Glycine riboswitch aptamer: a 93-nucleotide RNA from Caulobacter radicis.

[Rfam]
RNA sequence: CGCUGGAAAGCAGGCGCGCCUCCCAGAGGAGCGUCUCGCCGAAGGAGCAAGGGCGCGGUCGCGUUCCGAAUCUCUCAGGCCAACAGGACAGCG
Numbered sequence: 001c002g003c004u005g006g007a008a009a010g011c012a013g014g015c016g017c018g019c020c021u022c023c024c025a026g027a028g029g030a031g032c033g034u035c036u037c038g039c040c041g042a043a044g045g046a047g048c049a050a051g052g053g054c055g056c057g058g059u060c061g062c063g064u065u066c067c068g069a070a071u072c073u074c075u076c077a078g079g080c081c082a083a084c085a086g087g088a089c090a091g092c093g
Stems, first nucleotide, its partner, number of pairs: 001093005012036006038080003041076002045074003051067002